Shown here is a 544-nucleotide part of an RNA from Amastigomonas sp. 2 Bamfield, a member of the family "Eukaryotic small subunit ribosomal RNA". The literature on the family includes a 2001 paper in Science by Yusupov et al., "Crystal structure of the ribosome at 5.5 A resolution". Taxonomically the source falls in Amastigomonas (Eukaryota, Apusozoa, Apusomonadida, Apusomonadidae).
RNA sequence: CAAAGUUGUUGCGGUUAAAAAGCUCGUAGUUGGAUUUCCCGGGAAUUUUGGGUGUGGGAUGUGGUCAUUUGAACUGCGGCCAUGCCUUUACCGGUGGUUGUGCUCUCCUUCUGGGGGGGUAGGACGUGUACUUUGAACAAAUUAGAGUGCUCAAGACAGGCGAUUUUAUAAUUGCUGUGAAUAGAUUAGCAUGGAAUAACGGGUAUAAACUCUCUUCUCGGGAUUGUUGUUUUGACGAGGAGGGGGAAUGAUGGAUAGGGACAGGUGUGGGCAUUGAGAUUGUUACGUCAGAGGUGAAAUUCUUAGAUCGUAGCAGGAUUAGCAGACGCGAAAGCAUUUGUCAAGGAUGUUUUCAUUGAUCAAGAACGAAAGUUGGGGGAUCGAAGACGAUUAGAUACCGUCGUAGUCUCAACCAUAAACGAUGCCAGCUAGGGAUUGGAGGGGGCACGAGACUUUCUCACUACUUUUUCAGCACCUUUACGAGAAAUCCAAAGCGUUUGGGUUCCGGGGGAAGUAUGGUCGCAAGGCUGAAACUUUAAGGAAU
Numbered sequence: 001c002a003a004a005g006u007u008g009u010u011g012c013g014g015u016u017a018a019a020a021a022g023c024u025c026g027u028a029g030u031u032g033g034a035u036u037u038c039c040c041g042g043g044a045a046u047u048u049u050g051g052g053u054g055u056g057g058g059a060u061g062u063g064g065u066c067a068u069u070u071g072a073a074c075u076g077c078g079g080c081c082a083u084g085c086c087u088u089u090a091c092c093g094g095u096g097g098u099u100g101u102g103c104u105c106u107c108c109u110u111c112u113g114g115g116g117g118g119g120u121a122g123g124a125c126g127u128g129u130a131c132u133u134u135g136a137a138c139a140a141a142u143u144a145g146a147g148u149g150c151u152c153a154a155g156a157c158a159g160g161c162g163a164u165u166u167u168a169u170a171a172u173u174g175c176u177g178u179g180a181a182u183a184g185a186u187u188a189g190c191a192u193g194g195a196a197u198a199a200c201g202g203g204u205a206u207a208a209a210c211u212c213u214c215u216u217c218u219c220g221g222g223a224u225u226g227u228u229g230u231u232u233u234g235a236c237g238a239g240g241a242g243g244g245g246g247a248a249u250g251a252u253g254g255a256u257a258g259g260g261a262c263a264g265g266u267g268u269g270g271g272c273a274u275u276g277a278g279a280u281u282g283u284u285a286c287g288u289c290a291g292a293g294g295u296g297a298a299a300u301u302c303u304u305a306g307a308u309c310g311u312a313g314c315a316g317g318a319u320u321a322g323c324a325g326a327c328g329c330g331a332a333a334g335c336a337u338u339u340g341u342c343a344a345g346g347a348u349g350u351u352u353u354c355a356u357u358g359a360u361c362a363a364g365a366a367c368g369a370a371a372g373u374u375g376g377g378g379g380a381u382c383g384a385a386g387a388c389g390a391u392u393a394g395a396u397a398c399c400g401u402c403g404u405a406g407u408c409u410c411a412a413c414c415a416u417a418a419a420c421g422a423u424g425c426c427a428g429c430u431a432g433g434g435a436u437u438g439g440a441g442g443g444g445g446c447a448c449g450a451g452a453c454u455u456u457c458u459c460a461c462u463a464c465u466u467u468u469u470c471a472g473c474a475c476c477u478u479u480a481c482g483a484g485a486a487a488u489c490c491a492a493a494g495c496g497u498u499u500g501g502g503u504u505c506c507g508g509g510g511g512a513a514g515u516a517u518g519g520u521c522g523c524a525a526g527g528c529u530g531a532a533a534c535u536u537u538a539a540g541g542a543a544u
Base pairs, nucleotide, nucleotide: 012507013506014505020504022367024365025364029360030359031358258354259353260352261351262349263348266345270342271341272340273339276320277319280316281315282314283313284312285311286310287309291302292301293300328335329334372413373412374411375410376409377408382406386402387401388400389399424503425502426501428495429494431477432476433475436472437471438470439469440468441467442466443465445464447462482489483488509536510535511534518529519528520527521526